[Rfam]
RNA sequence: GUGUCUCGCGUCCUGCGGGCACGCAAACGAGGAAAGUCCCCCCACCGUCCGGGCAGGCGACCGGGCGCAAGCCCGGGGCGGGAGACCGCCGGCACUGGAACAGAAACGAUACCGCUCCCCUCGAGUGAUGAGGUCCGCGAACCCGCCCGAGAUGGCGGGGAGUCACCGACCGAACGGCGACGGGGGAGAACGGAUGGAACGGCCACCCUCGCCGGUGCAAGCCCGUGCCCCGACGCGAGAGCGUCGUAUGGUAGCCCGGACGCUACCGAGCACAGCUCGGUACGCCCCCGGAUGUAAUCCGGGGACACGGGCGCGGGCGCUCAGCCGAAUGCCGGGCCGAACAGAAGGGGGCUUACUCCCCUC
Numbered sequence: 001g002u003g004u005c006u007c008g009c010g011u012c013c014u015g016c017g018g019g020c021a022c023g024c025a026a027a028c029g030a031g032g033a034a035a036g037u038c039c040c041c042c043c044a045c046c047g048u049c050c051g052g053g054c055a056g057g058c059g060a061c062c063g064g065g066c067g068c069a070a071g072c073c074c075g076g077g078g079c080g081g082g083a084g085a086c087c088g089c090c091g092g093c094a095c096u097g098g099a100a101c102a103g104a105a106a107c108g109a110u111a112c113c114g115c116u117c118c119c120c121u122c123g124a125g126u127g128a129u130g131a132g133g134u135c136c137g138c139g140a141a142c143c144c145g146c147c148c149g150a151g152a153u154g155g156c157g158g159g160g161a162g163u164c165a166c167c168g169a170c171c172g173a174a175c176g177g178c179g180a181c182g183g184g185g186g187a188g189a190a191c192g193g194a195u196g197g198a199a200c201g202g203c204c205a206c207c208c209u210c211g212c213c214g215g216u217g218c219a220a221g222c223c224c225g226u227g228c229c230c231c232g233a234c235g236c237g238a239g240a241g242c243g244u245c246g247u248a249u250g251g252u253a254g255c256c257c258g259g260a261c262g263c264u265a266c267c268g269a270g271c272a273c274a275g276c277u278c279g280g281u282a283c284g285c286c287c288c289c290g291g292a293u294g295u296a297a298u299c300c301g302g303g304g305a306c307a308c309g310g311g312c313g314c315g316g317g318c319g320c321u322c323a324g325c326c327g328a329a330u331g332c333c334g335g336g337c338c339g340a341a342c343a344g345a346a347g348g349g350g351g352c353u354u355a356c357u358c359c360c361c362u363c
Stems, first nucleotide, its partner, number of pairs: 001359001003356001004336003008332002013029001014025004034354003038351005043217004056213005061076005077090005091208002096205003112193003115188007221318009

Rfam assigns this 363-nucleotide sequence from Halalkalicoccus paucihalophilus to the family "Archaeal RNase P". About the family: Ribonuclease P (RNase P) is a ubiquitous endoribonuclease, found in archaea, bacteria and eukarya as well as chloroplasts and mitochondria. Its best characterised activity is the generation of mature 5'-ends of tRNAs by cleaving the 5'-leader elements of precursor-tRNAs. Cellular RNase Ps are ribonucleoproteins. Its Rfam clan is "RNaseP clan". By type it is a ribozyme. A search with the family's covariance model found it, with a score of 113 bits. For this family Rfam cites "The Ribonuclease P Database" (Brown, Nucleic Acids Res, 1999). NCBI's taxonomy places the organism under Archaea, Methanobacteriati, Halobacteria, Halobacteriales, Halalkalicoccus.